[Rfam]
RNA sequence: ACAGGGCUUGAAACAUGAAUCGCACCGUCCGCCUACUUGGUCUACUACUAAACGCAUCUUAUUUGCGCGGUAGACUGGUGGGCGACAAUCAGUAUUGAUUCAAGCCUUCAGACAGAAAAAACCCGCGCCAAUGCGCGGGUUUUUUU
Numbered sequence: 001a002c003a004g005g006g007c008u009u010g011a012a013a014c015a016u017g018a019a020u021c022g023c024a025c026c027g028u029c030c031g032c033c034u035a036c037u038u039g040g041u042c043u044a045c046u047a048c049u050a051a052a053c054g055c056a057u058c059u060u061a062u063u064u065g066c067g068c069g070g071u072a073g074a075c076u077g078g079u080g081g082g083c084g085a086c087a088a089u090c091a092g093u094a095u096u097g098a099u100u101c102a103a104g105c106c107u108u109c110a111g112a113c114a115g116a117a118a119a120a121a122c123c124c125g126c127g128c129c130a131a132u133g134c135g136c137g138g139g140u141u142u143u144u145u146u
Base pairs, nucleotide, nucleotide: 004107006105007104008103009102010101012099014097015096016094017093026084027083028082029081030080031079032078033077045073046072047071048070049069053067054066055065056064118143119142120141121140122139123138124137125136126135127134128133